RNA sequence: UCCGUACCAGGACGAGAAGACCCCAUGGAGCUUUACUACAGUUUUACAUUGAUCCGGGUUUUGGCCCGUGUAGCAUAGUUGGGAGACGUUGAAGCAGAUACGCUAGUAUUUGUGGAGUCGCCGGUGAAAUACCAACCUUGCCAAGAUCUUGAUCUCACCCUGACCGUUAUCCGGUUAGGGGACCGUGUAUGAUGGGUAGUUUAACUGGGGCGGUUGCCUCCUAAAGAGUAGCGGAGGCGUUCAAAGGUUGGCUAGCUUCGGAUGGAAAUCGAAGUGAUAGUGUAUGCGCAUAAGCCAGCUUGACUGUGAGGAGUACAUUCCAAGCAGAGACGAAAGUCGGAGCAAGUGAUCCGCUGUACGUACAUUUGUACAUGAAUGUGGGAUCGACAGCGCAAACGGAUAAAAGUUACCCUGGGGAUAACAGGCUUAUAGCGCCCAAUAGUUCACAUAGACGGCGCUGUUUGGCACCUCGAUGUCGGCUCAUCACAUCCUGGAGGGGGAGCACCUUCCAAGGGUUCGGCUGUUCGCCGAUUAAAGUGGUACGCGAGCUGGGUUCAGAACGUCGUGAGACAGUUCGGUUUAUAUCCGGUAUGGACGAUA
Numbered sequence: 001u002c003c004g005u006a007c008c009a010g011g012a013c014g015a016g017a018a019g020a021c022c023c024c025a026u027g028g029a030g031c032u033u034u035a036c037u038a039c040a041g042u043u044u045u046a047c048a049u050u051g052a053u054c055c056g057g058g059u060u061u062u063g064g065c066c067c068g069u070g071u072a073g074c075a076u077a078g079u080u081g082g083g084a085g086a087c088g089u090u091g092a093a094g095c096a097g098a099u100a101c102g103c104u105a106g107u108a109u110u111u112g113u114g115g116a117g118u119c120g121c122c123g124g125u126g127a128a129a130u131a132c133c134a135a136c137c138u139u140g141c142c143a144a145g146a147u148c149u150u151g152a153u154c155u156c157a158c159c160c161u162g163a164c165c166g167u168u169a170u171c172c173g174g175u176u177a178g179g180g181g182a183c184c185g186u187g188u189a190u191g192a193u194g195g196g197u198a199g200u201u202u203a204a205c206u207g208g209g210g211c212g213g214u215u216g217c218c219u220c221c222u223a224a225a226g227a228g229u230a231g232c233g234g235a236g237g238c239g240u241u242c243a244a245a246g247g248u249u250g251g252c253u254a255g256c257u258u259c260g261g262a263u264g265g266a267a268a269u270c271g272a273a274g275u276g277a278u279a280g281u282g283u284a285u286g287c288g289c290a291u292a293a294g295c296c297a298g299c300u301u302g303a304c305u306g307u308g309a310g311g312a313g314u315a316c317a318u319u320c321c322a323a324g325c326a327g328a329g330a331c332g333a334a335a336g337u338c339g340g341a342g343c344a345a346g347u348g349a350u351c352c353g354c355u356g357u358a359c360g361u362a363c364a365u366u367u368g369u370a371c372a373u374g375a376a377u378g379u380g381g382g383a384u385c386g387a388c389a390g391c392g393c394a395a396a397c398g399g400a401u402a403a404a405a406g407u408u409a410c411c412c413u414g415g416g417g418a419u420a421a422c423a424g425g426c427u428u429a430u431a432g433c434g435c436c437c438a439a440u441a442g443u444u445c446a447c448a449u450a451g452a453c454g455g456c457g458c459u460g461u462u463u464g465g466c467a468c469c470u471c472g473a474u475g476u477c478g479g480c481u482c483a484u485c486a487c488a489u490c491c492u493g494g495a496g497g498g499g500g501a502g503c504a505c506c507u508u509c510c511a512a513g514g515g516u517u518c519g520g521c522u523g524u525u526c527g528c529c530g531a532u533u534a535a536a537g538u539g540g541u542a543c544g545c546g547a548g549c550u551g552g553g554u555u556c557a558g559a560a561c562g563u564c565g566u567g568a569g570a571c572a573g574u575u576c577g578g579u580u581u582a583u584a585u586c587c588g589g590u591a592u593g594g595a596c597g598a599u600a
Stems, first nucleotide, its partner, number of pairs: 001595008010587003015581001022416004027412002029408005035200004042192002045189004051154004056149010068137001078136005085119003094113008158180009203215004216238006239397001241341002247299006253279002256274006280289002304327004310321003329338003352392006360385001425466003429463001430460007440450002477552001478550004482544001483541005490515002493510006517531005558576004562571003
A member of the RNA family "Bacterial large subunit ribosomal RNA" from Candidatus Saccharibacteria bacterium RAAC3_TM7_1, 600 nucleotides of a longer RNA.
Taxonomically the source falls in Candidatus Saccharimonadota (Bacteria, Bacteria candidate phyla).
The base pairs follow the family's consensus structure, which is taken from published work.
It scores 2523 bits against the family's covariance model.